Rfam assigns this 91-nucleotide sequence from Amycolatopsis sp. CA-230715 to the family "ZMP/ZTP riboswitch aptamer (pfl RNA motif)". The source organism's lineage runs through Bacteria, Actinomycetota, Pseudonocardiales, Pseudonocardiaceae and Amycolatopsis. The base pairs follow the family's consensus structure, which is taken from published work. A search with the family's covariance model found it, with a score of 57 bits.
RNA sequence: GCGUCAGGCCGUGACUGGCGUUUGGAGAUGGAUCACCAUCGGGAAGCGGCCUCGUCGACCUGACGUCGUGCCGUACGCCUGGGCUCUCAUG
Dot-bracket structure: ..((.(((((((..(([[[[[......((((....))))..))..))))))).))............(.(((..]]]]]..))).).....